[Rfam]
RNA: Selenocysteine insertion sequence 1
RNA sequence: UGGCGUCUUCAUGAGGGAGGGGCCCAAAGCCCUUGUGGGCGGACCUCCCCUGAGCCUGUCUGAGGGGCCA
Number, nucleotide and partner (000 for none) at each position: 001u070002g069003g068004c067005g000006u000007c000008u000009u000010c000011a000012u000013g000014a000015g000016g050017g049018a000019g047020g046021g045022g044023c000024c042025c041026a000027a000028a000029g000030c039031c038032c037033u000034u000035g000036u000037g032038g031039g030040c000041g025042g024043a000044c022045c021046u020047c019048c000049c017050c016051u000052g000053a000054g000055c000056c000057u000058g000059u000060c000061u000062g000063a000064g000065g000066g000067g004068c003069c002070a001